[Rfam]
RNA sequence: GCGGGCGUCGGCGAACCGGGUCGGGUCGUCGCCGACUUCGGCGAGCACCCGGGCGCCGAGGUGAUCGCCCAGUCCGGGAAAG
Numbered sequence: 001g002c003g004g005g006c007g008u009c010g011g012c013g014a015a016c017c018g019g020g021u022c023g024g025g026u027c028g029u030c031g032c033c034g035a036c037u038u039c040g041g042c043g044a045g046c047a048c049c050c051g052g053g054c055g056c057c058g059a060g061g062u063g064a065u066c067g068c069c070c071a072g073u074c075c076g077g078g079a080a081a082g
Stems, first nucleotide, its partner, number of pairs: 008044003012040002018038007056078002060075002
The record is an 82-nucleotide RNA sequence from Actinomadura litoris, which matches "Actinobacteria sRNA Ms_AS-4" in Rfam. Taxonomically the source falls in Actinomadura (Bacteria, Actinomycetota, Actinomycetes, Thermomonosporaceae). By type it is a small RNA. On this family, see Li et al., RNA 2013: "Identification of small RNAs in Mycobacterium smegmatis using heterologous Hfq".